[Rfam]
RNA: Glycine riboswitch aptamer
RNA sequence: GCAGGCGAUGCGGGAGAGUCCAUUCCGGUGGACACCGAAGGAGCAAGCCUCCCUGCCAAUCUCUCAGGUUCAGUACCGCAUCACCGAG
Numbered sequence: 001g002c003a004g005g006c007g008a009u010g011c012g013g014g015a016g017a018g019u020c021c022a023u024u025c026c027g028g029u030g031g032a033c034a035c036c037g038a039a040g041g042a043g044c045a046a047g048c049c050u051c052c053c054u055g056c057c058a059a060u061c062u063c064u065c066a067g068g069u070u071c072a073g074u075a076c077c078g079c080a081u082c083a084c085c086g087a088g
Stems, first nucleotide, its partner, number of pairs: 007082007019032004034069003037065002041063003047056002